[Rfam]
RNA sequence: UCUCUUGUGCUCGGGCAUGUACUGUCGCCAGUGAGGUCUUUACCGAGGCACAGUCUUUUGCUGAUUGCAAAUUACACAUCCGAACCCGUCUGCUGGCUUCGGCCUUCAGCAAUUUUUGGAAAUCUCUCCUGACA
Numbered sequence: 001u002c003u004c005u006u007g008u009g010c011u012c013g014g015g016c017a018u019g020u021a022c023u024g025u026c027g028c029c030a031g032u033g034a035g036g037u038c039u040u041u042a043c044c045g046a047g048g049c050a051c052a053g054u055c056u057u058u059u060g061c062u063g064a065u066u067g068c069a070a071a072u073u074a075c076a077c078a079u080c081c082g083a084a085c086c087c088g089u090c091u092g093c094u095g096g097c098u099u100c101g102g103c104c105u106u107c108a109g110c111a112a113u114u115u116u117u118g119g120a121a122a123u124c125u126c127u128c129c130u131g132a133c134a
Stems, first nucleotide, its partner, number of pairs: 021054005027049003035044003088110001090109003095104003123134001125132002